[Rfam]
The family of this 82-nucleotide RNA sequence from Palleronia marisminoris is "chrB-a RNA". Taxonomically the source falls in Palleronia (Bacteria, Pseudomonadati, Alphaproteobacteria, Roseobacteraceae). A search with the family's covariance model found it, with a score of 68 bits.
RNA sequence: AUCAUGGGGCCGGCGACCGCCCCACGAGGCGUCAGCCGAAGAUCGCGUUCCACAACACCCGCCAGACGGAGGAACGCACAUG
Numbered sequence: 001a002u003c004a005u006g007g008g009g010c011c012g013g014c015g016a017c018c019g020c021c022c023c024a025c026g027a028g029g030c031g032u033c034a035g036c037c038g039a040a041g042a043u044c045g046c047g048u049u050c051c052a053c054a055a056c057a058c059c060c061g062c063c064a065g066a067c068g069g070a071g072g073a074a075c076g077c078a079c080a081u082g
Stems, first nucleotide, its partner, number of pairs: 005024006045077006